RNA sequence: GAAAGAAAUAGGCAAAUUUAGAGAAAUCUAAGGACGCAAAACUAUAGGGACUAAAGUUUUUACUAUGUCAGCCAGUUGCCAAA
Numbered sequence: 001g002a003a004a005g006a007a008a009u010a011g012g013c014a015a016a017u018u019u020a021g022a023g024a025a026a027u028c029u030a031a032g033g034a035c036g037c038a039a040a041a042c043u044a045u046a047g048g049g050a051c052u053a054a055a056g057u058u059u060u061u062a063c064u065a066u067g068u069c070a071g072c073c074a075g076u077u078g079c080c081a082a083a
Base pairs, nucleotide, nucleotide: 012037013036017032018031019030020029021028022027040077041076042075043074047073048072049069050068051067056063057062
RNA: c-di-GMP-I riboswitch aptamer